[Rfam]
RNA sequence: CUGCUUCUGGCUUCAACAGUGUUUGAAGGGAACAG
Numbered sequence: 001c002u003g004c005u006u007c008u009g010g011c012u013u014c015a016a017c018a019g020u021g022u023u024u025g026a027a028g029g030g031a032a033c034a035g
Stems, first nucleotide, its partner, number of pairs: 001035003005032004012027005017021001
The family of this 35-nucleotide RNA sequence from Enhydra lutris is "Iron response element I".
By type it is a cis-regulatory element.
Pairs were carried over by alignment from the consensus structure, which is taken from published work.
Lineage of the source: Eukaryota > Metazoa > Sarcopterygii > Caniformia > Enhydra lutris.